[Rfam]
Nucleotides: 102
Stems, first nucleotide, its partner, number of pairs: 007061006015051002020048002022045001023043008062075004077097001079100001083095003
Number, partner (000 for none) and nucleotide at each position: 001000a002000g003000u004000a005000a006000u007061g008060u009059u010058u011057u012056c013000u014000a015051g016050g017000g018000u019000u020048c021047c022045g023043c024042u025041g026040g027039u028038g029037a030036u031000u032000c033000u034000g035000c036030g037029u038028c039027a040026c041025u042024g043023g044000g045022c046000a047021g048020g049000u050016c051015c052000g053000a054000g055000a056012g057011a058010a059009a060008a061007c062075g063074g064073c065072c066000a067000a068000a069000a070000a071000c072065g073064g074063c075062u076000g077097c078000a079100c080000g081000g082000a083095g084094g085093g086000a087000u088000a089000a090000a091000a092000g093085c094084c095083c096000g097077g098000g099000a100079g101000a102000a
The record is a 102-nucleotide RNA sequence from Zhenpiania hominis, which matches "Guanidine-I riboswitch aptamer" in Rfam. The organism belongs to Zhenpiania, within Bacteria.